This 137-nucleotide RNA from Lentibacillus populi belongs to the Rfam family "Group II catalytic intron D1-D4-4". Gene Ontology term of the family: Group II intron splicing. Rfam describes the family as follows. Group II introns are found in rRNA, tRNA and mRNA of organelles in fungi, plants and protists, and also in mRNA in bacteria. The organism belongs to Lentibacillus, within Bacteria. A reference for the family is Bonen and Vogel (2001), "The ins and outs of group II introns", Trends Genet.

RNA sequence: GAGUUGGUGAAAGUCCAACCCAAGUAAGUACCAAGACGCUUGGUAGCUGACAAGUGACUGGUGGAGAAAUCCUAAGGUUGAAGCCUUGUGACAAAGCACACUCAGUAGUGCGAGCAACCUAACAGGUCGUAACAUAA
Numbered sequence: 001g002a003g004u005u006g007g008u009g010a011a012a013g014u015c016c017a018a019c020c021c022a023a024g025u026a027a028g029u030a031c032c033a034a035g036a037c038g039c040u041u042g043g044u045a046g047c048u049g050a051c052a053a054g055u056g057a058c059u060g061g062u063g064g065a066g067a068a069a070u071c072c073u074a075a076g077g078u079u080g081a082a083g084c085c086u087u088g089u090g091a092c093a094a095a096g097c098a099c100a101c102u103c104a105g106u107a108g109u110g111c112g113a114g115c116a117a118c119c120u121a122a123c124a125g126g127u128c129g130u131a132a133c134a135u136a137a
Stems, first nucleotide, its partner, number of pairs: 020043005050089005055080005064071002096111004100106001114130002